[Rfam]
RNA sequence: UCCGGAAGAACGUCAUCCGGAAUGUUUCCGGAAGAAGCUUCUUCCGGAAGAAUUCCAGUGUCUUCCGGAAGAAGCUUCUUCCGGAAGACUUCCGGAAGAAGCUUCUUCCGGAAGUUUUUUUUU
Numbered sequence: 001u002c003c004g005g006a007a008g009a010a011c012g013u014c015a016u017c018c019g020g021a022a023u024g025u026u027u028c029c030g031g032a033a034g035a036a037g038c039u040u041c042u043u044c045c046g047g048a049a050g051a052a053u054u055c056c057a058g059u060g061u062c063u064u065c066c067g068g069a070a071g072a073a074g075c076u077u078c079u080u081c082c083g084g085a086a087g088a089c090u091u092c093c094g095g096a097a098g099a100a101g102c103u104u105c106u107u108c109c110g111g112a113a114g115u116u117u118u119u120u121u122u123u
Base pairs, nucleotide, nucleotide: 008043009042011037013035014034017031018030019029020028021027044068045067046066047065048064049063050062051061083120084119085118086117087116088115089114090113091112092111093110094109095108096107097106098105